[Rfam]
RNA sequence: UACCCUAUCCAUUCGGGGUAACCCUAUCGUGACUAGCGUGGAUGGUAACGUCCGGGUUAGAAAGCUCACGAGACAAUGUGGAAGUUCGAGUAGCUUAGAACUGGAACAACUGCUAGGGUAAGAAUGCUAUGGAGAACGUAAAGUGA
Numbered sequence: 001u002a003c004c005c006u007a008u009c010c011a012u013u014c015g016g017g018g019u020a021a022c023c024c025u026a027u028c029g030u031g032a033c034u035a036g037c038g039u040g041g042a043u044g045g046u047a048a049c050g051u052c053c054g055g056g057u058u059a060g061a062a063a064g065c066u067c068a069c070g071a072g073a074c075a076a077u078g079u080g081g082a083a084g085u086u087c088g089a090g091u092a093g094c095u096u097a098g099a100a101c102u103g104g105a106a107c108a109a110c111u112g113c114u115a116g117g118g119u120a121a122g123a124a125u126g127c128u129a130u131g132g133a134g135a136a137c138g139u140a141a142a143g144u145g146a
Base pairs, nucleotide, nucleotide: 002019003018004017005016006015028070029069030068031067032066033060034059035058036057037056039054040053041052042051043050044049083102084101085100086099087098103127105125110117111116
This 146-nucleotide RNA from Alkaliphilus metalliredigens belongs to the Rfam family "Group II catalytic intron D1-D4-7".
The pairing is the family consensus, mapped onto this sequence.
Group II introns are found in rRNA, tRNA and mRNA of organelles in fungi, plants and protists, and also in mRNA in bacteria.